The record is a 56-nucleotide RNA sequence from Pseudochrobactrum saccharolyticum, which matches "sul1 RNA" in Rfam. NCBI's taxonomy places the organism under Bacteria, Pseudomonadati, Pseudomonadota, Brucellaceae, Pseudochrobactrum. A search with the family's covariance model found it, with a score of 73 bits. The family's RNA type in Rfam is riboswitch.

[Rfam]
RNA sequence: CAAGGACUCGGUGCAAUUCCGAGUGGCUCUUCUGGCCGCCUAUCCGCCAGACAACA
Numbered sequence: 001c002a003a004g005g006a007c008u009c010g011g012u013g014c015a016a017u018u019c020c021g022a023g024u025g026g027c028u029c030u031u032c033u034g035g036c037c038g039c040c041u042a043u044c045c046g047c048c049a050g051a052c053a054a055c056a
Base pairs, nucleotide, nucleotide: 006024007023008022009021010020011019031051032050033049034048035047036046